[Rfam]
RNA: Fluoride riboswitch aptamer (crcB RNA motif)
Organism: Iocasia frigidifontis
RNA sequence: AAUACUAAAGGUGAUGGAGCACCACCUGUAACCAUUGUUUCUAACAAUUAAUGGCUCCUAUUCAGGU
Numbered sequence: 001a002a003u004a005c006u007a008a009a010g011g012u013g014a015u016g017g018a019g020c021a022c023c024a025c026c027u028g029u030a031a032c033c034a035u036u037g038u039u040u041c042u043a044a045c046a047a048u049u050a051a052u053g054g055c056u057c058c059u060a061u062u063c064a065g066g067u
Stems, first nucleotide, its partner, number of pairs: 010026004016058005034048004